[Rfam]
The record is an 81-nucleotide sequence from Tetranychus urticae, which matches "mir-190 microRNA precursor family" in Rfam.
Lineage of the source: Eukaryota > Opisthokonta > Metazoa > Raphignathae > Tetranychus.
Rfam's curators put it in the seed alignment.
The family is grouped with related families in Rfam's "mir-50 clan".
RNA sequence: CCGCUUUUGAGAUAUGUUUGAUAUUCUUGGUUGUCAAUUUUUGCAAAAUCAACCAAGAAUCAGACAUAUGCUCAGGAUCGC
Dot-bracket structure: ....(((((..(((((((((((.((...(((((................))))).)).)))))))))))...)))))....
Its family is annotated with miRNA-mediated post-transcriptional gene silencing and RISC complex in the Gene Ontology.